[Rfam]
RNA sequence: AGCAGAGUAGAAUUUUGUGCGUUAAGUGCUGAGUGAACAGGGAGUUGUCAUUCGGACGAAAAGAUUUCUUGCGGUACAGAAUUCGCAUCCCGCUGCU
Numbered sequence: 001a002g003c004a005g006a007g008u009a010g011a012a013u014u015u016u017g018u019g020c021g022u023u024a025a026g027u028g029c030u031g032a033g034u035g036a037a038c039a040g041g042g043a044g045u046u047g048u049c050a051u052u053c054g055g056a057c058g059a060a061a062a063g064a065u066u067u068c069u070u071g072c073g074g075u076a077c078a079g080a081a082u083u084c085g086c087a088u089c090c091c092g093c094u095g096c097u
Stems, first nucleotide, its partner, number of pairs: 001097005010084010020073003026057002029055008040090003044086001061070003
RNA: THF (Tetrahydrofolate) riboswitch aptamer
Organism: [Bacteroides] pectinophilus